[Rfam]
RNA sequence: UCGAAGUUUCAUCUACAAAUGGAUAAGAUUUCCGUUUUAGUGUAUACGAGUUAAGUUAUUCAACGGAUGGGAGCAAUAACCAAAUUGCUUGUUCUAUCAAGCAAGGGGCUGGUAUUGCUCCUUU
Numbered sequence: 001u002c003g004a005a006g007u008u009u010c011a012u013c014u015a016c017a018a019a020u021g022g023a024u025a026a027g028a029u030u031u032c033c034g035u036u037u038u039a040g041u042g043u044a045u046a047c048g049a050g051u052u053a054a055g056u057u058a059u060u061c062a063a064c065g066g067a068u069g070g071g072a073g074c075a076a077u078a079a080c081c082a083a084a085u086u087g088c089u090u091g092u093u094c095u096a097u098c099a100a101g102c103a104a105g106g107g108g109c110u111g112g113u114a115u116u117g118c119u120c121c122u123u124u
Stems, first nucleotide, its partner, number of pairs: 008023005067124001069122010081107001086103005
RNA: Plastid-psbA-1 3UTR RNA